[Rfam]
RNA sequence: GCUGGCCAGUGAUGAUUCUUAACUACUCCUGGACUAAGGAAUGACAGUUGCGGAUAUGGGACUGAGGCCAGCC
Numbered sequence: 001g002c003u004g005g006c007c008a009g010u011g012a013u014g015a016u017u018c019u020u021a022a023c024u025a026c027u028c029c030u031g032g033a034c035u036a037a038g039g040a041a042u043g044a045c046a047g048u049u050g051c052g053g054a055u056a057u058g059g060g061a062c063u064g065a066g067g068c069c070a071g072c073c
Stems, first nucleotide, its partner, number of pairs: 001072005

Record summary:
This 73-nucleotide RNA sequence from Atractosteus spatula belongs to the Rfam family "Small nucleolar RNA SNORD99". NCBI's taxonomy places the organism under Eukaryota, Vertebrata, Euteleostomi, Actinopteri, Atractosteus. It scores 60 bits against the family's covariance model. Rfam 15.1 lists 673 matches to the family in 613 species. By type it is a C/D-box small nucleolar RNA. On this family, see Galardi et al., Mol Cell Biol 2002: "Purified box C/D snoRNPs are able to reproduce site-specific 2'-O-methylation of target RNA in vitro".